[Rfam]
RNA: Small nucleolar RNA SNORD87
RNA sequence: GCUGGCACUAUGAUGAUUUGUCUGCCGUUUACCCAACUGAGGGUUUCUUUGAAGAGGUAAUCUUAAGACUGAGAUGCCAGC
Numbered sequence: 001g002c003u004g005g006c007a008c009u010a011u012g013a014u015g016a017u018u019u020g021u022c023u024g025c026c027g028u029u030u031a032c033c034c035a036a037c038u039g040a041g042g043g044u045u046u047c048u049u050u051g052a053a054g055a056g057g058u059a060a061u062c063u064u065a066a067g068a069c070u071g072a073g074a075u076g077c078c079a080g081c
Stems, first nucleotide, its partner, number of pairs: 001081007